[Rfam]
This 102-nucleotide sequence from Acholeplasma oculi belongs to the Rfam family "THF (Tetrahydrofolate) riboswitch aptamer". The literature on the family includes a 2010 paper in Chem Biol by Ames et al., "A eubacterial riboswitch class that senses the coenzyme tetrahydrofolate". Taxonomically the source falls in Acholeplasma (Bacteria, Mycoplasmatota, Mollicutes, Acholeplasmataceae). Tetrahydrofolate (THF) riboswitch was first reported for Ames et al. as an RNA motif in 5' untranslated (5'-UTR)regions of folate transport and biosynthesis genes in Firmicutes genomes.

RNA sequence: AAAUAAAUAGGAAAUAUGCGUGAAGUGUCAAUUCUAAAACGGAUUACGGAAUUGAACGAACAAAUUAUAUGAUUUGGCGGUAUAUUUUCUAGAUCCCUAUUU
Numbered sequence: 001a002a003a004u005a006a007a008u009a010g011g012a013a014a015u016a017u018g019c020g021u022g023a024a025g026u027g028u029c030a031a032u033u034c035u036a037a038a039a040c041g042g043a044u045u046a047c048g049g050a051a052u053u054g055a056a057c058g059a060a061c062a063a064a065u066u067a068u069a070u071g072a073u074u075u076g077g078c079g080g081u082a083u084a085u086u087u088u089c090u091a092g093a094u095c096c097c098u099a100u101u102u
Stems, first nucleotide, its partner, number of pairs: 001102005010089009019079003025057002028055008061076006